[Rfam]
Nucleotides: 068
Base pairs, nucleotide, nucleotide: 001068003066004065005064006063007062009060010059011058012057013056017052018051019050021048023046024045025044027042028041029040
Number, partner (000 for none) and nucleotide at each position: 001068g002000u003066c004065g005064g006063u007062c008000c009060u010059c011058g012057g013056u014000a015000g016000u017052g018051g019050c020000u021048c022000c023046c024045g025044c026000c027042u028041c029040c030000c031000g032000g033000c034000c035000c036000u037000g038000c039000c040029g041028g042027g043000c044025g045024c046023g047000a048021g049000c050019g051018c052017c053000u054000c055000g056013a057012u058011c059010g060009a061000a062007g063006a064005u065004c066003g067000c068001c
Actino-pnp RNA: a 68-nucleotide sequence from Litorihabitans aurantiacus. The match comes from Rfam's covariance-model search (54 bits). By type it is a cis-regulatory element.